[Rfam]
RNA: GP20-a RNA
RNA sequence: AUUCCUCGUUGUUGAGCGAGGUUUAAACAAAUCGACCACACAAACGUAGAGCCGACUACGGAUUUAUAAAUUAAGGCAUUAAGUGUGAUAAGGAGAC
Numbered sequence: 001a002u003u004c005c006u007c008g009u010u011g012u013u014g015a016g017c018g019a020g021g022u023u024u025a026a027a028c029a030a031a032u033c034g035a036c037c038a039c040a041c042a043a044a045c046g047u048a049g050a051g052c053c054g055a056c057u058a059c060g061g062a063u064u065u066a067u068a069a070a071u072u073a074a075g076g077c078a079u080u081a082a083g084u085g086u087g088a089u090a091a092g093g094a095g096a097c
Stems, first nucleotide, its partner, number of pairs: 005020004010034001011032003037087004045060004